This 77-nucleotide sequence from Quercus lobata belongs to the Rfam family "MIR473 microRNA precursor family".
On this family, see Lu et al., Plant Cell 2005: "Novel and mechanical stress-responsive MicroRNAs in Populus trichocarpa that are absent from Arabidopsis".

RNA sequence: UUCGCCCACUCUCCCUCAAGGGCUUCUAGCAUUGCCAACAACAACGCAAGCUUGAGGCCUUUGGGGAGAGUUAACAG
Number, nucleotide and partner (000 for none) at each position: 001u000002u000003c000004g000005c000006c000007c000008a071009c070010u069011c068012u067013c066014c065015c064016u000017c063018a062019a061020g060021g059022g058023c057024u056025u055026c054027u000028a000029g000030c000031a000032u000033u000034g000035c000036c000037a000038a000039c000040a000041a000042c000043a000044a000045c000046g000047c000048a000049a000050g000051c000052u000053u000054g026055a025056g024057g023058c022059c021060u020061u019062u018063g017064g015065g014066g013067a012068g011069a010070g009071u008072u000073a000074a000075c000076a000077g000
Its family is annotated with RISC complex and miRNA-mediated post-transcriptional gene silencing in the Gene Ontology. The family has 6 seed sequences and 189 matches in Rfam 15.1.